[Rfam]
RNA sequence: UAUCUGCGAUACCUGAGAUUCGAACCUGCCGCAGGUUCGGGCCGAGCGCAGCGAGACAACGGAGCCGCCUGCGGCGACGGCCCGAAGGGCGAGGCGAAGCCGAGUCAUCCUGCACGACCCACCA
Numbered sequence: 001u002a003u004c005u006g007c008g009a010u011a012c013c014u015g016a017g018a019u020u021c022g023a024a025c026c027u028g029c030c031g032c033a034g035g036u037u038c039g040g041g042c043c044g045a046g047c048g049c050a051g052c053g054a055g056a057c058a059a060c061g062g063a064g065c066c067g068c069c070u071g072c073g074g075c076g077a078c079g080g081c082c083c084g085a086a087g088g089g090c091g092a093g094g095c096g097a098a099g100c101c102g103a104g105u106c107a108u109c110c111u112g113c114a115c116g117a118c119c120c121a122c123c124a
Stems, first nucleotide, its partner, number of pairs: 014114002016111001017109001019107001030091002036086004043053002060079002066076003
Rfam assigns this 124-nucleotide RNA sequence from Klebsiella sp. RIT-PI-d to the family "RtT RNA". Gene Ontology term of the family: cellular response to amino acid starvation. It scores 62 bits against the family's covariance model. From the family's description: This family represents a bacterial cis-regulatory element known as RtT RNA. The exact function of RtT is unknown although it is thought that it may be involved in changing the cellular response in relation to amino acid starvation. NCBI's taxonomy places the organism under Bacteria, Pseudomonadati, Gammaproteobacteria, Enterobacteriaceae, Klebsiella. The family has 57 seed sequences and 651 matches in Rfam 15.1.